[Rfam]
RNA: Guanidine-I riboswitch aptamer
Organism: Paenibacillus rigui
RNA sequence: UUAUAAGUUUUCUAGGGUUCCGCGGAUAUGGAUCCGUCCGGACCGAGAGAAAACGCACAGCUGCAGCUGUGUUCACGGAGGGAUAAAAGCCCGGGAGGA
Numbered sequence: 001u002u003a004u005a006a007g008u009u010u011u012c013u014a015g016g017g018u019u020c021c022g023c024g025g026a027u028a029u030g031g032a033u034c035c036g037u038c039c040g041g042a043c044c045g046a047g048a049g050a051a052a053a054c055g056c057a058c059a060g061c062u063g064c065a066g067c068u069g070u071g072u073u074c075a076c077g078g079a080g081g082g083a084u085a086a087a088a089g090c091c092c093g094g095g096a097g098g099a
Base pairs, nucleotide, nucleotide: 007054008053009052010051011050012049015044016043020041021040022038023036024035025034026033027032055072056071057070058069059068060067061066074094076097080092081091082090